[Rfam]
RNA: Bacterial RNase P class A
Organism: Janibacter sp. HTCC2649
RNA sequence: CGAGUCAGUCCGACGGUCGCGGCGUGGGCAACCAUGUCGAGGAAAGUCCGGGCUCCACAGGGCGCGGUGGUGGCCAACAGCCACCCGGGGUGACCCGCGGGACAGUGCCACAGAAAACAGACCGCCUCCCGACUCCGGUCGGGCGGUAAGGGUGAAACGGUGGUGUAAGAGACCACCAGCGGUUCCGGUGACGGAGUCGGCUAGGUAAACCCCACCCGGAGCAAGCUCAGACAGUGUGCGUUCGAGGGCGGCCCGCCCGAGUACACGGGUAGAGCGCUGGAGGCCACUGGCAACAGUGGUCCGAGAUGGAUGACCGUCAGCGUGACCCGGGCAACCGGCCACGCGACAGAACCCGGCUUAUGACUGACUCGUCCG
Number, nucleotide and partner (000 for none) at each position: 001c371002g370003a369004g368005u367006c366007a365008g364009u363010c362011c000012g318013a317014c316015g315016g314017u313018c312019g000020c039021g038022g037023c036024g035025u034026g033027g032028g000029c000030a000031a000032c027033c026034a025035u024036g023037u022038c021039g020040a000041g000042g000043a000044a359045a358046g357047u000048c356049c355050g354051g353052g352053c221054u220055c219056c218057a000058c000059a000060g254061g253062g252063c251064g000065c000066g216067g215068u214069g213070g084071u083072g082073g081074c080075c000076a000077a000078c000079a000080g074081c073082c072083a071084c070085c099086c097087g096088g095089g094090g000091u000092g000093a000094c089095c088096c087097g086098c000099g085100g212101g211102a000103c000104a000105g210106u209107g206108c205109c204110a000111c000112a000113g000114a000115a000116a000117a000118c000119a000120g000121a000122c151123c150124g147125c146126c145127u000128c143129c142130c141131g140132a139133c138134u000135c000136c000137g000138g133139u132140c131141g130142g129143g128144c000145g126146g125147u124148a000149a000150g123151g122152g000153u000154g000155a000156a000157a000158c000159g177160g176161u175162g174163g173164u172165g000166u000167a000168a000169g000170a000171g000172a164173c163174c162175a161176c160177c159178a000179g201180c199181g198182g197183u196184u195185c194186c193187g192188g000189u000190g000191a000192c187193g186194g185195a184196g183197u182198c181199g180200g000201c179202u000203a000204g109205g108206u107207a000208a000209a106210c105211c101212c100213c069214a068215c067216c066217c000218g056219g055220a054221g053222c000223a000224a000225g275226c274227u273228c272229a000230g000231a000232c000233a000234g266235u265236g264237u263238g262239c261240g000241u000242u000243c000244g000245a000246g258247g257248g256249c255250g000251g063252c062253c061254c060255g249256c248257c247258c246259g000260a000261g239262u238263a237264c236265a235266c234267g000268g000269g000270u000271a000272g228273a227274g226275c225276g000277c000278u000279g000280g000281a000282g301283g300284c299285c298286a297287c296288u295289g294290g000291c000292a000293a000294c289295a288296g287297u286298g285299g284300u283301c282302c000303g000304a000305g000306a000307u000308g000309g000310a000311u000312g018313a017314c016315c015316g014317u013318c012319a000320g000321c000322g000323u000324g000325a000326c000327c000328c000329g000330g000331g000332c000333a000334a000335c000336c000337g000338g000339c000340c000341a000342c000343g000344c000345g000346a000347c000348a000349g000350a000351a000352c052353c051354c050355g049356g048357c046358u045359u044360a000361u000362g010363a009364c008365u007366g006367a005368c004369u003370c002371g001372u000373c000374c000375g000